[Rfam]
RNA sequence: GCCGCUCCCGCGGGAGAGAGGGGCGCCCCCAGCACCUGGGCCGUCCCCGCCGAAGGCGCAAGCUCCCAUAAUCGCUCAGGCACACAGAACCGCGGGUUUCAA
Numbered sequence: 001g002c003c004g005c006u007c008c009c010g011c012g013g014g015a016g017a018g019a020g021g022g023g024c025g026c027c028c029c030c031a032g033c034a035c036c037u038g039g040g041c042c043g044u045c046c047c048c049g050c051c052g053a054a055g056g057c058g059c060a061a062g063c064u065c066c067c068a069u070a071a072u073c074g075c076u077c078a079g080g081c082a083c084a085c086a087g088a089a090c091c092g093c094g095g096g097u098u099u100c101a102a
Base pairs, nucleotide, nucleotide: 007096008095009094010093011092012091013090020047021046022045023044024043025042049081050080051079052077053076056075057074058073062069

This 102-nucleotide sequence from Azospira sp. I13 belongs to the Rfam family "Glycine riboswitch aptamer".
Clan: Glycine riboswitch clan.
Taxonomically the source falls in Azospira (Bacteria, Pseudomonadota, Betaproteobacteria, Rhodocyclaceae).